[Rfam]
RNA: Small nucleolar RNA snoR2/U65
RNA sequence: GGUCCAAGCCACAUCGUCGACAGCUAAACGAUGGUGAUCGGCGAUGCUAUGAUUGAACCGAAAGAAAUUCCAUUUGCACGUAGAUAGGAACCUGUAAACCAAUUUUUGAUCUAUUUAUCUAUGGAGCCGAUUUUUGUGACUACAAUU
Numbered sequence: 001g002g003u004c005c006a007a008g009c010c011a012c013a014u015c016g017u018c019g020a021c022a023g024c025u026a027a028a029c030g031a032u033g034g035u036g037a038u039c040g041g042c043g044a045u046g047c048u049a050u051g052a053u054u055g056a057a058c059c060g061a062a063a064g065a066a067a068u069u070c071c072a073u074u075u076g077c078a079c080g081u082a083g084a085u086a087g088g089a090a091c092c093u094g095u096a097a098a099c100c101a102a103u104u105u106u107u108g109a110u111c112u113a114u115u116u117a118u119c120u121a122u123g124g125a126g127c128c129g130a131u132u133u134u135u136g137u138g139a140c141u142a143c144a145a146u147u
Stems, first nucleotide, its partner, number of pairs: 002058002005055003008050001012046006019039002023032001025030001074139005087128002092124003096120001098118001